Bacterial RNase P class A: a 374-nucleotide RNA from Sphingomonas changbaiensis.
On this family, see Beauregard et al., RNA Biol 2013: "Identification and characterization of small RNAs in Yersinia pestis".
RNA sequence: CCAGAGGGUCGGGCGGCCGCGUCGCACUUCAAGUGCGCCGAGGAAAGUCCGGGCUCCACGGAACAACGGUGCCGGGUAACGCCCGGCGGUCCUGCGCAAGCAGGGUCAGGGACAGUGCCACAGAAAGCAGACCGCCUGGGCUUCGGCUCGGCAAGGGCGAAAGGGUGCGGCAAGAGCGCACCGCGGGUCCGGCAACGGGAACGGCAUGGCAAACCCCACCGGGAGCAAGACCGAAUAGGGGCGGCACAUGGGCCUUGUUCCGGCUCGUCGCCCGGGUUGGUUGCUGGAGGCUGUCGGCAACGGCAGCCCGAGAGGAAUGGCCGCACAUCGCCUUCGGGCGAGGACAGAACCCGGCUUAUAGACCCUCUGGCGCC
Numbered sequence: 001c002c003a004g005a006g007g008g009u010c011g012g013g014c015g016g017c018c019g020c021g022u023c024g025c026a027c028u029u030c031a032a033g034u035g036c037g038c039c040g041a042g043g044a045a046a047g048u049c050c051g052g053g054c055u056c057c058a059c060g061g062a063a064c065a066a067c068g069g070u071g072c073c074g075g076g077u078a079a080c081g082c083c084c085g086g087c088g089g090u091c092c093u094g095c096g097c098a099a100g101c102a103g104g105g106u107c108a109g110g111g112a113c114a115g116u117g118c119c120a121c122a123g124a125a126a127g128c129a130g131a132c133c134g135c136c137u138g139g140g141c142u143u144c145g146g147c148u149c150g151g152c153a154a155g156g157g158c159g160a161a162a163g164g165g166u167g168c169g170g171c172a173a174g175a176g177c178g179c180a181c182c183g184c185g186g187g188u189c190c191g192g193c194a195a196c197g198g199g200a201a202c203g204g205c206a207u208g209g210c211a212a213a214c215c216c217c218a219c220c221g222g223g224a225g226c227a228a229g230a231c232c233g234a235a236u237a238g239g240g241g242c243g244g245c246a247c248a249u250g251g252g253c254c255u256u257g258u259u260c261c262g263g264c265u266c267g268u269c270g271c272c273c274g275g276g277u278u279g280g281u282u283g284c285u286g287g288a289g290g291c292u293g294u295c296g297g298c299a300a301c302g303g304c305a306g307c308c309c310g311a312g313a314g315g316a317a318u319g320g321c322c323g324c325a326c327a328u329c330g331c332c333u334u335c336g337g338g339c340g341a342g343g344a345c346a347g348a349a350c351c352c353g354g355c356u357u358a359u360a361g362a363c364c365c366u367c368u369g370g371c372g373c374c
Stems, first nucleotide, its partner, number of pairs: 001370010011359001013324006020040002023037006045357003049354005054225004062259004067221005072086005087109001088107008110216002115214002117210003132156002134152003138149004164182006183205001184203002188199004229282004239273006250266005289308008
Dot-bracket structure: (((((((((((.((((((.((.((((((...)))))).))....[[[.[[[[[((((....[[[[.((((((((((.....)))))(((((((((....)))))))).)((...(((((............(((((.((((....)))))))..)).......((((((.......))))))(((..((((....))))..)).)..)))..)))))))))))))...((((......((((((.....(((((.]]]]..))))).)))))).....))))......((((((((....))))))))..........)))))).........................]]]]]]]].).))))))))))....